[Rfam]
LOOT RNA: a 118-nucleotide sequence. The family's consensus secondary structure is taken from published work. The sequence is in the family's curated seed alignment.

RNA sequence: UGCCUAAACCUAUCGGAUAACCGUUGGCAUGGCAUCAAAUCUCAAGACAAUACUGAACCCCGUGUUCAGCUACUUGUCUUGAGUCAUGCAUCGAAAGGUGCGUGGGGCCGUAAGGCUC
Numbered sequence: 001u002g003c004c005u006a007a008a009c010c011u012a013u014c015g016g017a018u019a020a021c022c023g024u025u026g027g028c029a030u031g032g033c034a035u036c037a038a039a040u041c042u043c044a045a046g047a048c049a050a051u052a053c054u055g056a057a058c059c060c061c062g063u064g065u066u067c068a069g070c071u072a073c074u075u076g077u078c079u080u081g082a083g084u085c086a087u088g089c090a091u092c093g094a095a096a097g098g099u100g101c102g103u104g105g106g107g108c109c110g111u112a113a114g115g116c117u118c
Stems, first nucleotide, its partner, number of pairs: 001034004009027002012025001014023002041083010053069006085104008105118005